Annotation
A member of the RNA family "THF-II riboswitch (folE RNA)", 39 nucleotides long. The base pairs follow the family's consensus structure, which is taken from published work.
[Rfam]
RNA sequence: CCGUUCAACUCGUUCCUUCCGCGAAAGGAACUACGGGAG
Number, nucleotide and partner (000 for none) at each position: 001c036002c035003g034004u033005u000006c000007a000008a000009c000010u000011c000012g031013u030014u029015c028016c027017u026018u025019c000020c000021g000022c000023g000024a000025a018026a017027g016028g015029a014030a013031c012032u000033a004034c003035g002036g001037g000038a000039g000